RNA sequence: UAGAUUUUGUAUGACUGGCGGAAAUGGGAGCUUACCCAUAGGGAGUACAAAAAUACGAUAUGCCGACCGCCUGGGCAGCUUUG
Number, nucleotide and partner (000 for none) at each position: 001u000002a000003g054004a000005u052006u051007u050008u049009g048010u047011a046012u045013g000014a000015c042016u041017g071018g070019c069020g068021g067022a000023a000024a000025u038026g037027g036028g035029a000030g000031c000032u000033u000034a000035c028036c027037c026038a025039u000040a000041g016042g015043g000044a000045g012046u011047a010048c009049a008050a007051a006052a005053a000054u003055a000056c000057g000058a000059u000060a000061u077062g076063c075064c074065g000066a000067c021068c020069g019070c018071c017072u000073g000074g064075g063076c062077a061078g000079c000080u000081u000082u000083g000
A member of the RNA family "ZMP/ZTP riboswitch aptamer (pfl RNA motif)" from Anaerocolumna chitinilytica, 83 nucleotides long. It scores 63 bits against the family's covariance model.